The record is a 74-nucleotide RNA from Kitasatospora griseola, which matches "Actino-pnp RNA" in Rfam.
Pairs were carried over by alignment from the consensus structure, which is taken from published work.
A search with the family's covariance model found it, with a score of 64 bits.
[Rfam]
RNA sequence: GCCGGUCCUCGGUAGUGGCCGCCGGAACCCCCGACACGCGGGGACGGACCCGGUGGCUUCGAUCGAAGACCGGC
Numbered sequence: 001g002c003c004g005g006u007c008c009u010c011g012g013u014a015g016u017g018g019c020c021g022c023c024g025g026a027a028c029c030c031c032c033g034a035c036a037c038g039c040g041g042g043g044a045c046g047g048a049c050c051c052g053g054u055g056g057c058u059u060c061g062a063u064c065g066a067a068g069a070c071c072g073g074c
Stems, first nucleotide, its partner, number of pairs: 001074007009066005017058009028047002

By type it is a cis-regulatory element.